A member of the RNA family "mir-7563 microRNA precursor family" from Ameiurus melas, 75 nucleotides long.
The match comes from Rfam's covariance-model search (84 bits).
The base pairs follow the family's consensus structure, which was predicted with RNAalifold.
[Rfam]
RNA sequence: ACCGUGUACUUACCUACUGUAUAGUAGCCAAAAUAUGUGUAUUUUGCCACUAUAUAGCAGGUAAGUACACGGUUU
Numbered sequence: 001a002c003c004g005u006g007u008a009c010u011u012a013c014c015u016a017c018u019g020u021a022u023a024g025u026a027g028c029c030a031a032a033a034u035a036u037g038u039g040u041a042u043u044u045u046g047c048c049a050c051u052a053u054a055u056a057g058c059a060g061g062u063a064a065g066u067a068c069a070c071g072g073u074u075u
Stems, first nucleotide, its partner, number of pairs: 001073015017057009027048001029046003033042003